Source information
Shown here is an 89-nucleotide sequence from Salmo trutta, a member of the family "Small nucleolar RNA SNORD60". Rfam links the family to the GO terms RNA processing and nucleolus. Clan: SNORD60 clan. The organism belongs to Salmo, within Eukaryota. By type it is a C/D-box small nucleolar RNA. A reference for the family is Galardi et al. (2002), "Purified box C/D snoRNPs are able to reproduce site-specific 2'-O-methylation of target RNA in vitro", Mol Cell Biol.
[Rfam]
RNA sequence: AGCCAGUGAUGACACAACUCAAAUAACUUUUCUGACACCUCGUAUGAGAGCUGGUAACAGCCUCUGAUUCUAACUCUACUCUGAGGCUC
Numbered sequence: 001a002g003c004c005a006g007u008g009a010u011g012a013c014a015c016a017a018c019u020c021a022a023a024u025a026a027c028u029u030u031u032c033u034g035a036c037a038c039c040u041c042g043u044a045u046g047a048g049a050g051c052u053g054g055u056a057a058c059a060g061c062c063u064c065u066g067a068u069u070c071u072a073a074c075u076c077u078a079c080u081c082u083g084a085g086g087c088u089c
Stems, first nucleotide, its partner, number of pairs: 001088004050061004
Dot-bracket structure: ((((.............................................((((....)))).......................)))).